[Rfam]
RNA sequence: UGAUUCAUUGCAUCCUUCUAAUCAAAGGAAUUACAGCUGAGCUGUAGUGUAUGAGAUCUAUGAUCCAUCAUAAUCCUCAGCUGUAUUCCUUUGAUUAGAGAGAUUCAUUGGAUCA
Numbered sequence: 001u002g003a004u005u006c007a008u009u010g011c012a013u014c015c016u017u018c019u020a021a022u023c024a025a026a027g028g029a030a031u032u033a034c035a036g037c038u039g040a041g042c043u044g045u046a047g048u049g050u051a052u053g054a055g056a057u058c059u060a061u062g063a064u065c066c067a068u069c070a071u072a073a074u075c076c077u078c079a080g081c082u083g084u085a086u087u088c089c090u091u092u093g094a095u096u097a098g099a100g101a102g103a104u105u106c107a108u109u110g111g112a113u114c115a
Stems, first nucleotide, its partner, number of pairs: 001115007012104002016100015032085006039078003
About this RNA: MIR1509 microRNA precursor family: a 115-nucleotide RNA from Trifolium subterraneum. Gene Ontology terms of the family: RISC complex and miRNA-mediated post-transcriptional gene silencing. Rfam 15.1 lists 42 matches to the family in 23 species.